The family of this 54-nucleotide sequence from Salmo salar is "UnaL2 LINE 3' element". Pairs were carried over by alignment from the consensus structure, which is taken from published work. It is annotated as a cis-regulatory element. On this family, see Baba et al., RNA 2004: "Solution structure of an RNA stem-loop derived from the 3' conserved region of eel LINE UnaL2". Lineage of the source: Eukaryota > Chordata > Neopterygii > Teleostei > Salmo. The eel long interspersed element (LINE) UnaL2 and its partner short interspersed element (SINE) share a conserved 3' tail containing a stem-loop that is critical for their retrotransposition. Presumably, the first step of retrotransposition is the recognition of their 3' tails by UnaL2-encoded reverse transcriptase. The solution structure of a 17-nucleotide RNA derived from the 3' tail of UnaL2 was determined by NMR.
RNA sequence: AUUUGAUUGAAAUGUAAGUCGCUCUGGAUAAGAGCGUCUGCUGAAUUACUAAAA
Numbered sequence: 001a002u003u004u005g006a007u008u009g010a011a012a013u014g015u016a017a018g019u020c021g022c023u024c025u026g027g028a029u030a031a032g033a034g035c036g037u038c039u040g041c042u043g044a045a046u047u048a049c050u051a052a053a054a
Stems, first nucleotide, its partner, number of pairs: 013043001014041003020036006